[Rfam]
RNA sequence: GGGCUGCCUCUUUGCAAUAUAUUUCAUGCAAAGAAGGUGUUGAACUGCUCGUAUAUUGAAUUUGCUUUGGUUAUUUGGACCCGCUGAGAGACUGAUUUCCUUGAAGCUGGUCUAGUAAGCCUUAGUGUAUA
Numbered sequence: 001g002g003g004c005u006g007c008c009u010c011u012u013u014g015c016a017a018u019a020u021a022u023u024u025c026a027u028g029c030a031a032a033g034a035a036g037g038u039g040u041u042g043a044a045c046u047g048c049u050c051g052u053a054u055a056u057u058g059a060a061u062u063u064g065c066u067u068u069g070g071u072u073a074u075u076u077g078g079a080c081c082c083g084c085u086g087a088g089a090g091a092c093u094g095a096u097u098u099c100c101u102u103g104a105a106g107c108u109g110g111u112c113u114a115g116u117a118a119g120c121c122u123u124a125g126u127g128u129a130u131a
Stems, first nucleotide, its partner, number of pairs: 002041003007037002009034008065125002070120003077113005083107003088099003
A member of the RNA family "Small nucleolar RNA snoR77" from Tripterygium wilfordii, 131 nucleotides long. The organism belongs to Tripterygium, within Eukaryota. The family's RNA type in Rfam is H/ACA-box small nucleolar RNA. It scores 90 bits against the family's covariance model. On this family, see Marker et al., Curr Biol 2002: "Experimental RNomics: identification of 140 candidates for small non-messenger RNAs in the plant Arabidopsis thaliana". Rfam links the family to the GO terms RNA processing and nucleolus. The family has 5 seed sequences and 649 matches in Rfam 15.1. Pairs were carried over by alignment from the consensus structure, which was predicted with WAR.